[Rfam]
Nucleotides: 070
Stems, first nucleotide, its partner, number of pairs: 001069004
Number, partner (000 for none) and nucleotide at each position: 001069g002068u003067g004066c005000a006000g007000u008000g009000a010000u011000g012000c013000a014000u015000u016000u017000u018000a019000c020000u021000c022000a023000u024000c025000a026000a027000c028000a029000c030000a031000u032000u033000c034000u035000g036000a037000a038000a039000a040000g041000g042000u043000a044000g045000g046000u047000g048000u049000g050000u051000g052000g053000a054000a055000a056000a057000c058000u059000a060000a061000u062000g063000a064000c065000a066004g067003c068002a069001c070000a